[Rfam]
The family of this 132-nucleotide RNA sequence from Rattus norvegicus is "Small nucleolar RNA SNORA17". The family has 53 seed sequences and 5,784 matches in Rfam 15.1. For this family Rfam cites "Mapping to nucleotide resolution of pseudouridine residues in large subunit ribosomal RNAs from representative eukaryotes, prokaryotes, archaebacteria, mitochondria and chloroplasts" (Ofengand and Bakin, J Mol Biol, 1997). Taxonomically the source falls in Rattus (Eukaryota, Craniata, Mammalia, Glires). Its family is annotated with nucleolus and RNA processing in the Gene Ontology. The family is grouped with related families in Rfam's "SNORA17 clan".
RNA sequence: CCUGUCCCUAGAGGCAUUGUAAGUGUGGUUGCUGUGUCACUUGUGUGUCCAUAGGUGGCAGAAAGGGGAGACCUUAUGUCUACUCUGAGUGUUCUCACCUGUGAACAUCUGAAUGAUUAGUAGCCUAAUCCA
Numbered sequence: 001c002c003u004g005u006c007c008c009u010a011g012a013g014g015c016a017u018u019g020u021a022a023g024u025g026u027g028g029u030u031g032c033u034g035u036g037u038c039a040c041u042u043g044u045g046u047g048u049c050c051a052u053a054g055g056u057g058g059c060a061g062a063a064a065g066g067g068g069a070g071a072c073c074u075u076a077u078g079u080c081u082a083c084u085c086u087g088a089g090u091g092u093u094c095u096c097a098c099c100u101g102u103g104a105a106c107a108u109c110u111g112a113a114u115g116a117u118u119a120g121u122a123g124c125c126u127a128a129u130c131c132a
Base pairs, nucleotide, nucleotide: 002061003060004059005058006057007055008054009053010052013049014048015047019046020045021044025040026039027038028037029036068129071126074123075122076121077120083115086112088110089109090107091106092105093104094103
Dot-bracket structure: .(((((((((..(((...(((...(((((......)))))...))))))..)))).)))))......(..(..((((.....(..(.(((((((........))))).)).)..)....))))..)..)...
Rfam's curators write: snoRNA ACA 17 belongs to the H/ACA family of snoRNAs and is predicted to guide pseudouridylation of the 28S rRNA at positions U4659 and U4598. It shares the same host gene together with ACA43. NB This family has a high threshold value to exclude a large number of closely related sequences that do not appear to have conserved H and ACA boxes, and may be pseudogenes.